[Rfam]
RNA sequence: UCAUGAGUUCGAGGCAAUAGCAGAAAUGCUCGCGGUGCAGCCUGUCAGAUUCCAGCAAAUCUGCAAAUUCUGCU
Numbered sequence: 001u002c003a004u005g006a007g008u009u010c011g012a013g014g015c016a017a018u019a020g021c022a023g024a025a026a027u028g029c030u031c032g033c034g035g036u037g038c039a040g041c042c043u044g045u046c047a048g049a050u051u052c053c054a055g056c057a058a059a060u061c062u063g064c065a066a067a068u069u070c071u072g073c074u
Stems, first nucleotide, its partner, number of pairs: 013042003019074007027037002046063006